[Rfam]
RNA sequence: AGGGCUGGUCGCAAGACCCGGGUCCAACGAUACGGUGUGGGUGUCCCAC
Numbered sequence: 001a002g003g004g005c006u007g008g009u010c011g012c013a014a015g016a017c018c019c020g021g022g023u024c025c026a027a028c029g030a031u032a033c034g035g036u037g038u039g040g041g042u043g044u045c046c047c048a049c
Stems, first nucleotide, its partner, number of pairs: 002025005007018004
The family of this 49-nucleotide RNA is "DUF3800-XI RNA". Pairs were carried over by alignment from the consensus structure, which is taken from published work. Actinobacteria, Firmicutes, Proteobacteria, Spirochaetes (1 example).